Shown here is a 279-nucleotide RNA sequence from Piliocolobus tephrosceles, a member of the family "Mason-Pfizer monkey virus packaging signal".
Lineage of the source: Eukaryota > Bilateria > Deuterostomia > Eutheria > Piliocolobus.

RNA sequence: UGGCGCCUCAACGCAUGGGGCUUGGAUACGGGGGAACUUGGUGAGGAAGAGGGCACGUGAAAAGGUCCACGGCCACAGUGAAAAUAAAUUCCCCCGACCGCCGCGGGAGCCUGCUGCAUCGCCGUUUGGAGGUGAGUUGUGCGCCUGAAAUGGGACAAGAAUUAAGCCAACACCAACUCUAUGUGGGACAGUUAAAAGUGGCUUUAAAGACACGGGGAGUAAAGGUUAAAAGUAGUGACUUGUUUAAAUUUUUUGAUUUUAUAAAAGAUACCUGCCCUU
Numbered sequence: 001u002g003g004c005g006c007c008u009c010a011a012c013g014c015a016u017g018g019g020g021c022u023u024g025g026a027u028a029c030g031g032g033g034g035a036a037c038u039u040g041g042u043g044a045g046g047a048a049g050a051g052g053g054c055a056c057g058u059g060a061a062a063a064g065g066u067c068c069a070c071g072g073c074c075a076c077a078g079u080g081a082a083a084a085u086a087a088a089u090u091c092c093c094c095c096g097a098c099c100g101c102c103g104c105g106g107g108a109g110c111c112u113g114c115u116g117c118a119u120c121g122c123c124g125u126u127u128g129g130a131g132g133u134g135a136g137u138u139g140u141g142c143g144c145c146u147g148a149a150a151u152g153g154g155a156c157a158a159g160a161a162u163u164a165a166g167c168c169a170a171c172a173c174c175a176a177c178u179c180u181a182u183g184u185g186g187g188a189c190a191g192u193u194a195a196a197a198g199u200g201g202c203u204u205u206a207a208a209g210a211c212a213c214g215g216g217g218a219g220u221a222a223a224g225g226u227u228a229a230a231a232g233u234a235g236u237g238a239c240u241u242g243u244u245u246a247a248a249u250u251u252u253u254u255g256a257u258u259u260u261a262u263a264a265a266a267g268a269u270a271c272c273u274g275c276c277c278u279u
Base pairs, nucleotide, nucleotide: 006034007033009032013029015027039053042050091132092131093129094128099124100122103117104116105115106114140157141156144154145153146152147151163206164205165204166202167201168200213255214254215253216252217251218250219249220248223241224240225239226238227237228236264279265278267276269274